[Rfam]
RNA: EcpR1
Organism: Methyloceanibacter methanicus
Nucleotides: 112
Base pairs, nucleotide, nucleotide: 003049004048005047006046007045008044009043010042016039018037019036020035021034052107053106054105055104056103057102058101059100060099061098
Number, partner (000 for none) and nucleotide at each position: 001000c002000a003049a004048c005047c006046c007045u008044g009043c010042g011000g012000a013000a014000u015000g016039c017000u018037c019036a020035g021034g022000u023000c024000c025000g026000c027000c028000g029000c030000a031000u032000c033000u034021c035020c036019u037018g038000c039016g040000u041000c042010c043009g044008u045007g046006g047005g048004g049003u050000u051000u052107g053106g054105c055104c056103g057102g058101u059100c060099g061098g062000g063000g064000c065000g066000c067000g068000g069000u070000a071000g072000a073000g074000u075000g076000g077000c078000c079000u080000c081000c082000u083000c084000g085000u086000u087000a088000g089000c090000g091000c092000c093000g094000c095000g096000u097000g098061u099060c100059g101058a102057c103056c104055g105054g106053c107052c108000a109000c110000c111000a112000c